[Rfam]
RNA sequence: UUAGAUUCCCAUGUCAUUGUAGAAGCGUGCUCGUCGCGACCCCUGCCAGCCCUUUUCAGGGCUGCAAUUCUACA
Numbered sequence: 001u002u003a004g005a006u007u008c009c010c011a012u013g014u015c016a017u018u019g020u021a022g023a024a025g026c027g028u029g030c031u032c033g034u035c036g037c038g039a040c041c042c043c044u045g046c047c048a049g050c051c052c053u054u055u056u057c058a059g060g061g062c063u064g065c066a067a068u069u070c071u072a073c074a
Stems, first nucleotide, its partner, number of pairs: 013040003018074007025037003047064007
The record is a 74-nucleotide RNA from Parnassius apollo, which matches "Mammalian CPEB3 ribozyme" in Rfam. Its family is annotated with RNA nuclease activity in the Gene Ontology. The match comes from Rfam's covariance-model search (42 bits). The family's consensus secondary structure is taken from published work. Rfam 15.1 lists 5,706 matches to the family in 197 species. NCBI's taxonomy places the organism under Eukaryota, Bilateria, Papilionidae, Parnassini, Parnassius.